[Rfam]
RNA sequence: CAUGCCGAGGAGCGCUGCAACGGAUUCGAUUCCGCCAGGCUCGGCAUGAAGGUUGAAACAACAUGACAAACCGCGCUCACUCACG
Numbered sequence: 001c002a003u004g005c006c007g008a009g010g011a012g013c014g015c016u017g018c019a020a021c022g023g024a025u026u027c028g029a030u031u032c033c034g035c036c037a038g039g040c041u042c043g044g045c046a047u048g049a050a051g052g053u054u055g056a057a058a059c060a061a062c063a064u065g066a067c068a069a070a071c072c073g074c075g076c077u078c079a080c081u082c083a084c085g
Stems, first nucleotide, its partner, number of pairs: 002047007021034004
Rfam assigns this 85-nucleotide RNA sequence from Candidatus Thiodiazotropha endoloripes to the family "SAH (S-adenosyl-L-homocysteine) riboswitch aptamer". It scores 66 bits against the family's covariance model. Lineage of the source: Bacteria > Gammaproteobacteria > Chromatiales > Sedimenticolaceae > Candidatus Thiodiazotropha.